[Rfam]
RNA sequence: GAUGGCAGUGAUGACUCGGUAAUAUUCAAGCUCAAGAUACCAAAUCACAGAUCUUUCUCUCUGGAUCUACUCCUCAGAGAUUGAUUUGCAUGUCGAUUUUCCCGCUGAACCGAGCCAUC
Numbered sequence: 001g002a003u004g005g006c007a008g009u010g011a012u013g014a015c016u017c018g019g020u021a022a023u024a025u026u027c028a029a030g031c032u033c034a035a036g037a038u039a040c041c042a043a044a045u046c047a048c049a050g051a052u053c054u055u056u057c058u059c060u061c062u063g064g065a066u067c068u069a070c071u072c073c074u075c076a077g078a079g080a081u082u083g084a085u086u087u088g089c090a091u092g093u094c095g096a097u098u099u100u101c102c103c104g105c106u107g108a109a110c111c112g113a114g115c116c117a118u119c
Stems, first nucleotide, its partner, number of pairs: 001119006
Dot-bracket structure: ((((((...........................................................................................................))))))

The record is a 119-nucleotide RNA sequence from Oryza meyeriana, which matches "Small nucleolar RNA Z107/R87" in Rfam. Rfam classes the family as a C/D-box small nucleolar RNA. Its family is annotated with nucleolus and RNA processing in the Gene Ontology.